[Rfam]
Fluoride riboswitch aptamer (crcB RNA motif): an 85-nucleotide sequence from Coprococcus eutactus.
The sequence is in the family's curated seed alignment.
The family's consensus secondary structure is taken from published work.
Taxonomically the source falls in Coprococcus eutactus (Bacteria, Clostridia, Lachnospirales, Lachnospiraceae).
RNA sequence: AUUAUAAAAGGGAAUGAGGUUCUCCUCUGGAAAACCUGAAUGGGCAACCUAAACUGCUAAUAUAGCUGAUGACUUCUACGAUUAU
Numbered sequence: 001a002u003u004a005u006a007a008a009a010g011g012g013a014a015u016g017a018g019g020u021u022c023u024c025c026u027c028u029g030g031a032a033a034a035c036c037u038g039a040a041u042g043g044g045c046a047a048c049c050u051a052a053a054c055u056g057c058u059a060a061u062a063u064a065g066c067u068g069a070u071g072a073c074u075u076c077u078a079c080g081a082u083u084a085u
Stems, first nucleotide, its partner, number of pairs: 010025003016076006056066003